[Rfam]
RNA: mir-31 microRNA precursor family
RNA sequence: UACUUGAGAGAAGGCAAGAUGUUGGCAAAGCUGUAGCAUCAGAAACCUGCUGUGCCAUCAUAUUGCCAUCUUUCUUGUCU
Dot-bracket structure: .....((((((.(((((.(((.(((((.(((.................))).))))).))).))))).))))))......